RNA sequence: CCUUUAUCCAGAGAGGCGGAGGGACUAGGCCCUAUGAUGCCCGGCAACCGGCGUGAAAACGCAAAGGUGCUAAUUCCUACAGAUUUUGAUUAGAUCUGGCAGAUAAGGG
Dot-bracket structure: ((((((((....(.(((...(((..[[[[)))......))))((((.((.(((......)))...))))))...(]]]]((((((.......))))))..)))))))))
Shown here is a 109-nucleotide RNA from Ureibacillus yapensis, a member of the family "SAM riboswitch aptamer (S box leader)".